[Rfam]
RNA sequence: GUGCCACCACACGACUGGCGCGGGUGGGCGACCACCGGGGAGUGACGUCGAGGGGCAUCGACCGCCUGGGUGCCCUCA
Numbered sequence: 001g002u003g004c005c006a007c008c009a010c011a012c013g014a015c016u017g018g019c020g021c022g023g024g025u026g027g028g029c030g031a032c033c034a035c036c037g038g039g040g041a042g043u044g045a046c047g048u049c050g051a052g053g054g055g056c057a058u059c060g061a062c063c064g065c066c067u068g069g070g071u072g073c074c075c076u077c078a
Base pairs, nucleotide, nucleotide: 004050006048007047010044011043012042015039016038017066018065019064020063024035025034026033027032055073056072057071058070059069
Overview
This 78-nucleotide RNA sequence from Nocardioides mangrovicus belongs to the Rfam family "ZMP/ZTP riboswitch aptamer (pfl RNA motif)". The source organism's lineage runs through Bacteria, Bacillati, Actinomycetes, Propionibacteriales and Nocardioides. The base pairs follow the family's consensus structure, which is taken from published work. The match comes from Rfam's covariance-model search (45 bits).